[Rfam]
Shown here is an 84-nucleotide sequence from Patiria miniata, a member of the family "mir-184 microRNA precursor family".
Nucleotides: 084
Base pairs, nucleotide, nucleotide: 012074013073014072015071016070017069018068019067020066021064022063023062024060025059029056030055
Number, partner (000 for none) and nucleotide at each position: 001000g002000u003000u004000u005000c006000c007000u008000u009000u010000a011000c012074u013073c014072c015071u016070u017069a018068u019067c020066g021064u022063u023062c024060c025059c026000g027000c028000g029056c030055c031000c032000a033000g034000c035000u036000g037000c038000c039000a040000u041000g042000u043000u044000u045000g046000a047000a048000u049000a050000a051000u052000g053000c054000u055030g056029g057000a058000c059025g060024g061000a062023g063022a064021a065000c066020u067019g068018a069017u070016a071015a072014g073013g074012g075000c076000u077000u078000a079000u080000g081000g082000g083000a084000a

Taxonomically the source falls in Patiria (Eukaryota, Opisthokonta, Echinodermata, Eleutherozoa). It is one of the family's seed sequences.